[Rfam]
RNA sequence: UAUAUACCUCGGUAGGUGAGGUUACUACAAGGAUACGGGUUGCUACCGUAAAAGAGUGGAAACAUUCUUAACUGGUUAGCAGAUUUUGCCGAACAAAGAAGGCUUAAUCUAACGCAAUUUCAUUGCCUUGCAGAGCUAAAACUUGAACGAGACAUACUAU
Numbered sequence: 001u002a003u004a005u006a007c008c009u010c011g012g013u014a015g016g017u018g019a020g021g022u023u024a025c026u027a028c029a030a031g032g033a034u035a036c037g038g039g040u041u042g043c044u045a046c047c048g049u050a051a052a053a054g055a056g057u058g059g060a061a062a063c064a065u066u067c068u069u070a071a072c073u074g075g076u077u078a079g080c081a082g083a084u085u086u087u088g089c090c091g092a093a094c095a096a097a098g099a100a101g102g103c104u105u106a107a108u109c110u111a112a113c114g115c116a117a118u119u120u121c122a123u124u125g126c127c128u129u130g131c132a133g134a135g136c137u138a139a140a141a142c143u144u145g146a147a148c149g150a151g152a153c154a155u156a157c158u159a160u
Stems, first nucleotide, its partner, number of pairs: 005156002009152002011148001013100001015143003020137003025133002028130005039118005046074001048072002055066004082109004088103003

Rfam assigns this 160-nucleotide sequence from Clostridium sulfidigenes to the family "M-box riboswitch aptamer (ykoK leader)". Pairs were carried over by alignment from the consensus structure. From the family's description: M-box riboswitch, also know as ykoK leader is described as a metaloregulatory RNA that sense divalent metals and function as a genetic control element of genes related to divalent metal transport in bacteria. Taxonomically the source falls in Clostridium (Bacteria, Bacillota, Eubacteriales, Clostridiaceae). The match comes from Rfam's covariance-model search (107 bits).